The family of this 82-nucleotide RNA from Tymovirus ononis is "Tymovirus/Pomovirus/Furovirus tRNA-like 3' UTR element". Rfam links the family to the GO term regulation of translation. The literature on the family includes a 2014 paper in Nature by Colussi et al., "The structural basis of transfer RNA mimicry and conformational plasticity by a viral RNA". The sequence is in the family's curated seed alignment. It is annotated as a cis-regulatory element. The family's consensus secondary structure is taken from published work.

RNA sequence: AAAUAUGACCGGUGUCAUAGCCUCUAGCACACAGAGGUCGCGUGGGUUCAACUCCCCCCCUUUUCCGAGGGUAUCGGAAACC
Dot-bracket structure: ....(((((..[.))))).((((((.......)))))).....(((..]....))).[[....(((((]]...)))))....